[Rfam]
RNA sequence: GGCGGGAUAGCUCAGUUGGUCAGAGCAGGGGAAUCAUAAUCCCAAGGUCGCUGGUUCAAAUCCAGUUCCCGCUA
Numbered sequence: 001g002g003c004g005g006g007a008u009a010g011c012u013c014a015g016u017u018g019g020u021c022a023g024a025g026c027a028g029g030g031g032a033a034u035c036a037u038a039a040u041c042c043c044a045a046g047g048u049c050g051c052u053g054g055u056u057c058a059a060a061u062c063c064a065g066u067u068c069c070c071g072c073u074a
Stems, first nucleotide, its partner, number of pairs: 001073007010026004029043004050066005
A member of the RNA family "tRNA" from Aliidongia dinghuensis, 74 nucleotides long. A search with the family's covariance model found it, with a score of 66 bits. From the family's description: Transfer RNA (tRNA) molecules are approximately 80 nucleotides in length. Pairs were carried over by alignment from the consensus structure, which is taken from published work. Rfam classes the family as a transfer RNA. Its family is annotated with triplet codon-amino acid adaptor activity in the Gene Ontology.